[Rfam]
RNA sequence: GUACUUACCCGGGAGGGGAGAUACCAUGACCACGAAGGUGGCUUUCCCAAGGCGAGGCUUGUCCAUUGCACCCCGGAUGUGCUGACCCCUGUGAUUUCCCAAAUGUGGGAAAUGGCUGCAUAAUUUGUGGUAGUGGAAGAAAAAAAUAAAUAAAAGUAAAAAUAAAUUAGACCCUCUG
Numbered sequence: 001g002u003a004c005u006u007a008c009c010c011g012g013g014a015g016g017g018g019a020g021a022u023a024c025c026a027u028g029a030c031c032a033c034g035a036a037g038g039u040g041g042c043u044u045u046c047c048c049a050a051g052g053c054g055a056g057g058c059u060u061g062u063c064c065a066u067u068g069c070a071c072c073c074c075g076g077a078u079g080u081g082c083u084g085a086c087c088c089c090u091g092u093g094a095u096u097u098c099c100c101a102a103a104u105g106u107g108g109g110a111a112a113u114g115g116c117u118g119c120a121u122a123a124u125u126u127g128u129g130g131u132a133g134u135g136g137a138a139g140a141a142a143a144a145a146a147u148a149a150a151u152a153a154a155a156g157u158a159a160a161a162a163u164a165a166a167u168u169a170g171a172c173c174c175u176c177u178g
Stems, first nucleotide, its partner, number of pairs: 012119001014117002016048006024041004049090001051088002054086001056083003060079005092114002095111002098108002135177003139173001